[Rfam]
RNA sequence: UUGCACUCUUAAACCUCUUUCUUGCUUUCGUUUUGAGUUUGAGAGACAAAAGAGAGUGCGAGAGUAUUUGUGAAUACCAAGGUUGUUAGCAUUGCUUGUUUUCAACCAUUUCACAUCACAUACAGAA
Numbered sequence: 001u002u003g004c005a006c007u008c009u010u011a012a013a014c015c016u017c018u019u020u021c022u023u024g025c026u027u028u029c030g031u032u033u034u035g036a037g038u039u040u041g042a043g044a045g046a047c048a049a050a051a052g053a054g055a056g057u058g059c060g061a062g063a064g065u066a067u068u069u070g071u072g073a074a075u076a077c078c079a080a081g082g083u084u085g086u087u088a089g090c091a092u093u094g095c096u097u098g099u100u101u102u103c104a105a106c107c108a109u110u111u112c113a114c115a116u117c118a119c120a121u122a123c124a125g126a127a
Stems, first nucleotide, its partner, number of pairs: 003059004008052003016046006024038002065127001067122001069120005081107005089099002
RNA: Small nucleolar RNA SNORA14
Organism: Portunus trituberculatus